[Rfam]
RNA sequence: GUCUGUUAGUGUUAGAAAGGGCUGGUAUGUGCCCUGAUCAUUGAUAGUGCAGGGAGAGGAUUGCUGAAAGGAGUUUCUCCCAUGUUUGAAGGGUCCAGCUGUCCCUUCCAAACCCUGGAACUUUCAAACA
Numbered sequence: 001g002u003c004u005g006u007u008a009g010u011g012u013u014a015g016a017a018a019g020g021g022c023u024g025g026u027a028u029g030u031g032c033c034c035u036g037a038u039c040a041u042u043g044a045u046a047g048u049g050c051a052g053g054g055a056g057a058g059g060a061u062u063g064c065u066g067a068a069a070g071g072a073g074u075u076u077c078u079c080c081c082a083u084g085u086u087u088g089a090a091g092g093g094u095c096c097a098g099c100u101g102u103c104c105c106u107u108c109c110a111a112a113c114c115c116u117g118g119a120a121c122u123u124u125c126a127a128a129c130a
Base pairs, nucleotide, nucleotide: 001048002047008042009041010040011039013037015035019034020033021032022031065126066125067124068123069122070121084113085112086111087110088109089107090106091105092104093103

Small nucleolar RNA SNORA71: a 130-nucleotide sequence from Myotis davidii. Rfam classes the family as an H/ACA-box small nucleolar RNA. It scores 71 bits against the family's covariance model. About the family: The members of this family belong to the H/ACA class of snoRNAs which bind a number of proteins (including dyskerin, Gar1p and Nop10p) to form snoRNP complexes. This class of snoRNAs are thought to guide the sites of modification of uridines to pseudouridines by forming direct base pairing interactions with substrate RNAs. Taxonomically the source falls in Myotis (Eukaryota, Eumetazoa, Bilateria, Eutheria). Gene Ontology terms of the family: nucleolus and RNA processing.